RNA sequence: GCUCAAUGAUGAAAAUACCCAAAUCUGAGUAUCAGAGGACUUCCAAUCUACGUGAUGCAUGAUCUUUGUAGUUCUGAGA
Dot-bracket structure: ............................(((((...(((.......)))....))))).....................
Numbered sequence: 001g002c003u004c005a006a007u008g009a010u011g012a013a014a015a016u017a018c019c020c021a022a023a024u025c026u027g028a029g030u031a032u033c034a035g036a037g038g039a040c041u042u043c044c045a046a047u048c049u050a051c052g053u054g055a056u057g058c059a060u061g062a063u064c065u066u067u068g069u070a071g072u073u074c075u076g077a078g079a
Stems, first nucleotide, its partner, number of pairs: 029058005037049003
A member of the RNA family "Small nucleolar RNA U2-19" from Puma concolor, 79 nucleotides long.
Rfam classes the family as a C/D-box small nucleolar RNA.
Pairs were carried over by alignment from the consensus structure, which is taken from published work.